[Rfam]
RNA sequence: CAGGUUGGACGACCUUCCUGCGCGUCGUUGAUCAGGGGACGACCCCA
Dot-bracket structure: ((((..((....))..))))..............((((....)))).
Numbered sequence: 001c002a003g004g005u006u007g008g009a010c011g012a013c014c015u016u017c018c019u020g021c022g023c024g025u026c027g028u029u030g031a032u033c034a035g036g037g038g039a040c041g042a043c044c045c046c047a
Stems, first nucleotide, its partner, number of pairs: 001020004007014002035046004
A member of the RNA family "Guanidine-II riboswitch aptamer (mini-ykkC)" from Serratia odorifera, 47 nucleotides long. The family has 72 seed sequences and 1,589 matches in Rfam 15.1. Its family is annotated with regulation of gene expression in the Gene Ontology.